Pseudomonas sRNA CrcZ: a 386-nucleotide RNA sequence from Pseudomonas sp. SSM44. The literature on the family includes a 2009 paper in Proc Natl Acad Sci U S A by Sonnleitner et al., "Small RNA as global regulator of carbon catabolite repression in Pseudomonas aeruginosa". The base pairs follow the family's consensus structure, which was predicted with WAR. It scores 142 bits against the family's covariance model.
[Rfam]
Nucleotides: 386
Stems, first nucleotide, its partner, number of pairs: 046076003094218005105211003134179005155168005236253001238252004271368004277298003318358003331350008
Number, partner (000 for none) and nucleotide at each position: 001000a002000c003000a004000a005000c006000a007000a008000c009000a010000a011000u012000a013000a014000a015000a016000a017000c018000c019000a020000a021000a022000a023000c024000a025000c026000a027000u028000a029000a030000u031000a032000a033000a034000a035000a036000u037000a038000a039000u040000a041000u042000u043000c044000a045000u046076c047075u048074c049000c050000a051000c052000a053000g054000a055000c056000a057000a058000u059000a060000a061000a062000a063000a064000u065000a066000a067000a068000a069000c070000g071000u072000g073000a074048g075047a076046g077000a078000c079000g080000c081000a082000g083000c084000a085000a086000a087000c088000u089000g090000a091000u092000u093000c094218u095217u096216u097215u098214g099000g100000a101000g102000a103000a104000u105211a106210g107209c108000a109000g110000u111000c112000a113000g114000g115000u116000c117000g118000c119000g120000a121000g122000c123000a124000g125000g126000a127000u128000g129000c130000u131000c132000a133000g134179a135178u136177g137176g138175a139000c140000a141000a142000g143000a144000g145000a146000a147000a148000a149000a150000u151000a152000a153000a154000a155168g156167u157166u158165g159164c160000c161000u162000a163000a164159g165158c166157a167156a168155c169000c170000u171000a172000c173000c174000g175138u176137c177136c178135a179134u180000a181000g182000c183000a184000a185000c186000a187000u188000a189000a190000a191000g192000g193000c194000c195000g196000a197000c198000a199000c200000u201000g202000a203000a204000c205000c206000u207000a208000a209107g210106c211105u212000u213000c214098c215097a216096a217095a218094g219000c220000a221000a222000u223000c224000c225000g226000u227000u228000u229000g230000u231000u232000u233000u234000u235000g236253a237000c238252a239251a240250c241249c242000c243000g244000a245000g246000a247000u248000g249241g250240g251239u252238u253236u254000a255000u256000c257000a258000c259000a260000u261000g262000g263000c264000g265000a266000g267000c268000u269000u270000g271368g272367u273366c274365g275000c276000u277298g278297c279296u280000g281000u282000a283000u284000a285000a286000a287000a288000a289000a290000a291000a292000u293000u294000a295000u296279a297278g298277c299000u300000c301000u302000g303000a304000u305000a306000a307000u308000a309000a310000c311000a312000a313000c314000a315000a316000u317000a318358a319357a320356a321000a322000a323000u324000a325000c326000c327000a328000u329000u330000a331350g332349g333348g334347g335346g336345a337344g338343u339000g340000a341000a342000u343338g344337c345336u346335c347334c348333c349332c350331u351000u352000g353000g354000g355000c356320u357319u358318u359000a360000u361000c362000u363000c364000c365274c366273g367272a368271c369000u370000c371000c372000c373000u374000c375000c376000u377000c378000a379000a380000g381000c382000c383000c384000u385000a386000u

NCBI's taxonomy places the organism under Bacteria, Pseudomonadota, Pseudomonadales, Pseudomonadaceae, Pseudomonas. The family has 19 seed sequences and 127 matches in Rfam 15.1.